[Rfam]
RNA sequence: UGGGCAUCAAUGAGGAGAUUUAAUUUGUUAUCCUUGCACUUUGAUUGUCAGUGAAGAAACAAAGUGGGCAUUUUCUCUCUGAGAUGCUU
Numbered sequence: 001u002g003g004g005c006a007u008c009a010a011u012g013a014g015g016a017g018a019u020u021u022a023a024u025u026u027g028u029u030a031u032c033c034u035u036g037c038a039c040u041u042u043g044a045u046u047g048u049c050a051g052u053g054a055a056g057a058a059a060c061a062a063a064g065u066g067g068g069c070a071u072u073u074u075c076u077c078u079c080u081g082a083g084a085u086g087c088u089u
Base pairs, nucleotide, nucleotide: 002089003088004087005086006085007084008083
RNA: Small nucleolar RNA snoR26